[Rfam]
RNA sequence: GUGGGCUAUGGGGACAUGUCCCCCGUGACGGUGGGCGGGAAGAUCGUGGGCUCGUUGUGCGCCAUCGCCGGGGUCCUCACCAUCUCCCUCCCGGUGCCCGUCAUCGUCUCCAAC
Numbered sequence: 001g002u003g004g005g006c007u008a009u010g011g012g013g014a015c016a017u018g019u020c021c022c023c024c025g026u027g028a029c030g031g032u033g034g035g036c037g038g039g040a041a042g043a044u045c046g047u048g049g050g051c052u053c054g055u056u057g058u059g060c061g062c063c064a065u066c067g068c069c070g071g072g073g074u075c076c077u078c079a080c081c082a083u084c085u086c087c088c089u090c091c092c093g094g095u096g097c098c099c100g101u102c103a104u105c106g107u108c109u110c111c112a113a114c
Stems, first nucleotide, its partner, number of pairs: 001114002004111002008107004013102003018097002021094001037077004049063003
RNA: Potassium channel RNA editing signal